[Rfam]
RNA sequence: UGACCCUGGAAAUCCAGAGCGAGUAAGGCCUAUCUGACUGUUUCUGGGUGACCCACUCUUGGUUUCCAUGGUUG
Numbered sequence: 001u002g003a004c005c006c007u008g009g010a011a012a013u014c015c016a017g018a019g020c021g022a023g024u025a026a027g028g029c030c031u032a033u034c035u036g037a038c039u040g041u042u043u044c045u046g047g048g049u050g051a052c053c054c055a056c057u058c059u060u061g062g063u064u065u066c067c068a069u070g071g072u073u074g
Base pairs, nucleotide, nucleotide: 002073003072004071005070007068009066010065011064012063013062014061016059017058021054023052024051028049029048030047031046
A member of the RNA family "mir-551 microRNA precursor family" from Muntiacus reevesi, 74 nucleotides long. The organism belongs to Muntiacus, within Eukaryota. Rfam 15.1 lists 1,097 matches to the family in 627 species. Rfam links the family to the GO terms RISC complex and miRNA-mediated post-transcriptional gene silencing.